RNA sequence: GGGAGGUUGGCGCGGACGUGUUCCUCGCCAACCGGGUCAGGUCCGGAAGGAAGCAGCCCCAACGAGAUCCUCACGGGUCGUUUGCCAGCCUCCUACG
Numbered sequence: 001g002g003g004a005g006g007u008u009g010g011c012g013c014g015g016a017c018g019u020g021u022u023c024c025u026c027g028c029c030a031a032c033c034g035g036g037u038c039a040g041g042u043c044c045g046g047a048a049g050g051a052a053g054c055a056g057c058c059c060c061a062a063c064g065a066g067a068u069c070c071u072c073a074c075g076g077g078u079c080g081u082u083u084g085c086c087a088g089c090c091u092c093c094u095a096c097g
Base pairs, nucleotide, nucleotide: 004091005090006089007088008087010083012081013080014079017075018074019073020072024066025065026064027063034059035058036057037056042051043050044049